c-di-AMP riboswitch aptamer (ydaO/yuaA leader): a 132-nucleotide RNA from a Micromonosporaceae bacterium. The base pairs follow the family's consensus structure.
RNA sequence: ACGAAGGCUCCGCCGAAUCGCCGUACGGUGAGCCGGGGACCCGAGGAUGUUGGGGUGAAUCCGCGAAAGCGGUAGGGAGUGUUCCGUCCCGAACCCGUCAGCUAACCCGGUAGGCGGCCGACGGAAGGAACA
Numbered sequence: 001a002c003g004a005a006g007g008c009u010c011c012g013c014c015g016a017a018u019c020g021c022c023g024u025a026c027g028g029u030g031a032g033c034c035g036g037g038g039a040c041c042c043g044a045g046g047a048u049g050u051u052g053g054g055g056u057g058a059a060u061c062c063g064c065g066a067a068a069g070c071g072g073u074a075g076g077g078a079g080u081g082u083u084c085c086g087u088c089c090c091g092a093a094c095c096c097g098u099c100a101g102c103u104a105a106c107c108c109g110g111u112a113g114g115c116g117g118c119c120g121a122c123g124g125a126a127g128g129a130a131c132a
Stems, first nucleotide, its partner, number of pairs: 011116004018031003032111006042052002053096003061072004075090004